[Rfam]
Rfam assigns this 118-nucleotide sequence from Aureimonas sp. Leaf454 to the family "Rhizobiales sRNA Atu_C8". Rfam classes the family as a small RNA.
RNA sequence: CAUGAGCACGAUUCUUAUCGUAGUAAUGGAGCGCACACGCGAGACGGUCUAGAGACCGUCCGGCGAAAGCCACGUGUGCGCUGAGGGCCCCUUCGAGGGCCCUUUUUUAUUGCCCGAA
Numbered sequence: 001c002a003u004g005a006g007c008a009c010g011a012u013u014c015u016u017a018u019c020g021u022a023g024u025a026a027u028g029g030a031g032c033g034c035a036c037a038c039g040c041g042a043g044a045c046g047g048u049c050u051a052g053a054g055a056c057c058g059u060c061c062g063g064c065g066a067a068a069g070c071c072a073c074g075u076g077u078g079c080g081c082u083g084a085g086g087g088c089c090c091c092u093u094c095g096a097g098g099g100c101c102c103u104u105u106u107u108u109a110u111u112g113c114c115c116g117a118a
Base pairs, nucleotide, nucleotide: 029111030082031081032080033079034078035077036076037075038074039073043060044059045058046057047056063070064069084103085102086101087100088099089098090097

Overview: A reference for the family is Wilms et al. (2012), "Deep sequencing uncovers numerous small RNAs on all four replicons of the plant pathogen Agrobacterium tumefaciens", RNA Biol. The family's consensus secondary structure was predicted with CMfinder. The match comes from Rfam's covariance-model search (76 bits).